TPP riboswitch aptamer (THI element): a 106-nucleotide RNA sequence from Acetivibrio thermocellus.
Taxonomically the source falls in Acetivibrio thermocellus (Bacteria, Bacillati, Acetivibrionales, Acetivibrionaceae).
RNA sequence: UCAUCACGCUAGGGGUGCCAUUGUGGCUGAGAAAGAGACUUAAGUCUCUUAACCCUUUGAACCUGAUGCGGUUAGUACCGCCGGAGGGAAGCGGAAAAUAUUGUUU
Number, nucleotide and partner (000 for none) at each position: 001u000002c000003a000004u000005c000006a000007c093008g092009c091010u090011a056012g055013g054014g053015g000016u000017g027018c026019c025020a024021u000022u000023g000024u020025g019026g018027c017028u000029g000030a000031g000032a000033a000034a049035g048036a047037g046038a045039c000040u000041u000042a000043a000044g000045u038046c037047u036048c035049u034050u000051a000052a000053c014054c013055c012056u011057u000058u000059g000060a000061a000062c087063c086064u085065g000066a000067u000068g081069c080070g079071g078072u000073u000074a000075g000076u000077a000078c071079c070080g069081c068082c000083g000084g000085a064086g063087g062088g000089a000090a010091g009092c008093g007094g000095a000096a000097a000098a000099u000100a000101u000102u000103g000104u000105u000106u000